[Rfam]
Shown here is a 112-nucleotide sequence from Heyndrickxia ginsengihumi, a member of the family "SAM riboswitch aptamer (S box leader)".
Nucleotides: 112
Stems, first nucleotide, its partner, number of pairs: 001112008013042005021031003025078004043070004048066002050062001052060001074104001079101006
Number, partner (000 for none) and nucleotide at each position: 001112u002111u003110c004109u005108u006107a007106u008105c009000a010000a011000g012000a013042g014041a015040g016039g017038u018000g019000g020000a021031g022030g023029g024000a025078c026077u027076g028075g029023c030022c031021c032000u033000a034000u035000g036000a037000a038017g039016c040015c041014u042013c043070a044069g045068c046067a047000a048066c049065c050062a051000g052060c053000c054000a055000a056000a057000c058000a059000u060052g061000g062050u063000c064000a065049g066048g067046u068045g069044c070043u071000a072000a073000u074104u075028c076027c077026a078025g079101c080100a081099a082098a083097c084096a085000a086000g087000u088000a089000u090000u091000g092000u093000c094000a095000u096084u097083g098082u099081u100080u101079g102000a103000c104074a105008g106007a107006u108005a109004a110003g111002a112001a